RNA sequence: AUUGGCCCGACAAAGUAGCUUUGGCGAAAUCAGUGCCUUAAAUAAGGGGAACAGGACCAUUGCCGGAAACGGCAUAAAUGGAACCGUCGCUAUGACCGACAGGACGCUGCUUGCAUGGAUGGGUAGGUGCGUAACCAUUUUCAUUGUCGUUGUCAUACGCAGCCUGAAUCGCACCCUACAAUACGGCUGUACGGCGGUUAUUUCUAAAAGGAGACAUGA
Number, nucleotide and partner (000 for none) at each position: 001a000002u000003u000004g037005g036006c035007c000008c000009g000010a000011c000012a000013a000014a000015g000016u000017a000018g000019c024020u000021u000022u000023g000024g019025c000026g000027a000028a000029a000030u000031c000032a000033g000034u000035g006036c005037c004038u000039u000040a000041a000042a000043u000044a000045a000046g000047g000048g000049g000050a000051a000052c000053a000054g000055g000056a000057c000058c000059a000060u000061u074062g073063c072064c071065g000066g000067a000068a000069a000070c000071g064072g063073c062074a061075u000076a000077a000078a000079u000080g000081g000082a199083a198084c197085c196086g195087u194088c193089g192090c000091u191092a156093u155094g154095a153096c152097c149098g148099a147100c146101a145102g000103g000104a000105c000106g114107c113108u000109g000110c000111u000112u000113g107114c106115a000116u000117g140118g139119a138120u137121g136122g135123g000124u000125a000126g000127g000128u000129g000130c000131g000132u000133a000134a000135c122136c121137a120138u119139u118140u117141u000142c000143a000144u000145u101146g100147u099148c098149g097150u000151u000152g096153u095154c094155a093156u092157a000158c000159g190160c189161a188162g187163c186164c000165u185166g177167a000168a000169u000170c000171g000172c000173a000174c000175c000176c000177u166178a000179c000180a000181a000182u000183a000184c000185g165186g163187c162188u161189g160190u159191a091192c089193g088194g087195c086196g085197g084198u083199u082200a000201u000202u000203u000204c000205u000206a000207a000208a000209a000210g000211g000212a000213g000214a000215c000216a000217u000218g000219a000
RT-2 RNA: a 219-nucleotide RNA. Pairs were carried over by alignment from the consensus structure, which is taken from published work. Rfam classes the family as a small RNA.